[Rfam]
RNA sequence: GUUAAGGGGUUUGUUGUCUGGCUCGAGGCAUCCGGGACUCCGGUUUCUCCUUUCCUACUGGAGGCGCCUAAUUUCCGGCGAGCUCGGAGCCUCGGACCAGGCUUCAAUCCCUUUAAC
Numbered sequence: 001g002u003u004a005a006g007g008g009g010u011u012u013g014u015u016g017u018c019u020g021g022c023u024c025g026a027g028g029c030a031u032c033c034g035g036g037a038c039u040c041c042g043g044u045u046u047c048u049c050c051u052u053u054c055c056u057a058c059u060g061g062a063g064g065c066g067c068c069u070a071a072u073u074u075c076c077g078g079c080g081a082g083c084u085c086g087g088a089g090c091c092u093c094g095g096a097c098c099a100g101g102c103u104u105c106a107a108u109c110c111c112u113u114u115a116a117c
Stems, first nucleotide, its partner, number of pairs: 001117009011107003016102006024094006